[Rfam]
RNA: mir-515 microRNA precursor family
Nucleotides: 087
Stems, first nucleotide, its partner, number of pairs: 001087005007081001010078005016072003020068007028060004033055003039051001
Number, partner (000 for none) and nucleotide at each position: 001087u002086c003085u004084c005083a006000u007081g008000c009000u010078g011077u012076g013075g014074c015000c016072c017071u018070c019000u020068a021067a022066a023065g024064g025063g026062a027000a028060g029059c030058g031057c032000u033055u034054u035053c036000u037000g038000u039051u040000g041000u042000c043000u044000g045000a046000g047000a048000g049000a050000a051039g052000c053035g054034a055033a056000u057031g058030c059029g060028u061000c062026u063025u064024c065023c066022u067021u068020u069000a070018g071017a072016g073000u074014g075013u076012c077011a078010c079000c080000a081007u082000u083005u084004g085003a086002g087001a